Small nucleolar RNA SNORD42: a 65-nucleotide RNA from Heterocephalus glaber. Rfam's curators write: snoRNA U42 is found in intron 3 of the ribosomal protein L23a (RPL23a) gene in humans and is also present in mice. It is annotated as a C/D-box small nucleolar RNA. Rfam 15.1 lists 848 matches to the family in 572 species.
RNA sequence: AUGCAAAUGAUGGAAAAUUCACUAUUUGGAAAAGAAUGAUAAGAACAAAGGAACCACUGAUGCAC
Numbered sequence: 001a002u003g004c005a006a007a008u009g010a011u012g013g014a015a016a017a018u019u020c021a022c023u024a025u026u027u028g029g030a031a032a033a034g035a036a037u038g039a040u041a042a043g044a045a046c047a048a049a050g051g052a053a054c055c056a057c058u059g060a061u062g063c064a065c
Stems, first nucleotide, its partner, number of pairs: 002064004

The source organism's lineage runs through Eukaryota, Craniata, Teleostomi, Rodentia and Heterocephalus. Pairs were carried over by alignment from the consensus structure, which was predicted with PFOLD.